A member of the RNA family "Small nucleolar RNA Z103" from Cynara cardunculus, 105 nucleotides long. For this family Rfam cites "The high diversity of snoRNAs in plants: identification and comparative study of 120 snoRNA genes from Oryza sativa" (Chen et al., Nucleic Acids Res, 2003). Rfam 15.1 lists 2,844 matches to the family in 233 species. The base pairs follow the family's consensus structure, which was predicted with PFOLD.
RNA sequence: AUGAAAAUGAUGACUAUUUCCCCAGAUGAUCGAAUCUGAAAUUAUUGAGCGCUCUUUUUUUUUCUCUCUUUUUGGAGAAAAAUCCAAGCCAGAAAUCUGAUCCAU
Numbered sequence: 001a002u003g004a005a006a007a008u009g010a011u012g013a014c015u016a017u018u019u020c021c022c023c024a025g026a027u028g029a030u031c032g033a034a035u036c037u038g039a040a041a042u043u044a045u046u047g048a049g050c051g052c053u054c055u056u057u058u059u060u061u062u063u064c065u066c067u068c069u070u071u072u073u074g075g076a077g078a079a080a081a082a083u084c085c086a087a088g089c090c091a092g093a094a095a096u097c098u099g100a101u102c103c104a105u
Base pairs, nucleotide, nucleotide: 001105002104003103005101